[Rfam]
RNA sequence: ACGCCCAGUGAUUAUAAAAGACGCGUUAUUCUGAGGGUUUCUCCCUGCCGUCAGUUCUUCACCUCUCCUCCUCCGUCUCUUUCUCUCCCUCUCACUCAGUCUGUCCUGCAAUCACUACUCUUCUCCUCUGUUCUGUACUCAACGCUGGCAGCCGGUCCACUGAAUGCGAUUAUGAGAUAUGAGGGUGU
Dot-bracket structure: ((((((...........................((((.......................................))))......................................................................................................))))))
Rfam assigns this 188-nucleotide RNA sequence from Merluccius polli to the family "Small nucleolar RNA SNORD97". It scores 48 bits against the family's covariance model. The family's consensus secondary structure was predicted with WAR. Its family is annotated with nucleolus and RNA processing in the Gene Ontology. The organism belongs to Merluccius, within Eukaryota.